[Rfam]
RNA sequence: UGAAUCCAAAACAACAAAAGCCCUACCUCUCUUCUGUCCUUGCGGCUCCGAUGACCGCGCCAGUGUGAAUCAGAUCGUCAAAUUUCAA
Dot-bracket structure: ..................................((..(((((((.(.....).)))))..))..)).....................
RNA: BsrC
Organism: Paenibacillus bovis